[Rfam]
6C RNA: a 73-nucleotide sequence from Amycolatopsis saalfeldensis. Rfam links the family to the GO term sporulation. The family's consensus secondary structure is taken from published work. The source organism's lineage runs through Bacteria, Bacillati, Actinomycetota, Pseudonocardiaceae and Amycolatopsis.
RNA sequence: CGGUUCAGUCCGACCCCCCGGGGCUGAAACCCUGGCGGCCCUCGUCCCUCCCCCCUGGCGAGGGCCGCCCUCU
Dot-bracket structure: .(.((((((((.........)))))))).)...(((((((((((((..........)))))))))))))....